[Rfam]
RNA sequence: UGUAUGAAUUGACAUGCAUACAACAAGUGUAAGGUGUAGUAAUACAACCGAUGCCAGAGUAGGACAUUAUGACAACGUGCCACUGAUCAUGUGCCUAAGAUC
Numbered sequence: 001u002g003u004a005u006g007a008a009u010u011g012a013c014a015u016g017c018a019u020a021c022a023a024c025a026a027g028u029g030u031a032a033g034g035u036g037u038a039g040u041a042a043u044a045c046a047a048c049c050g051a052u053g054c055c056a057g058a059g060u061a062g063g064a065c066a067u068u069a070u071g072a073c074a075a076c077g078u079g080c081c082a083c084u085g086a087u088c089a090u091g092u093g094c095c096u097a098a099g100a101u102c
Stems, first nucleotide, its partner, number of pairs: 001018006019061003033049002035046004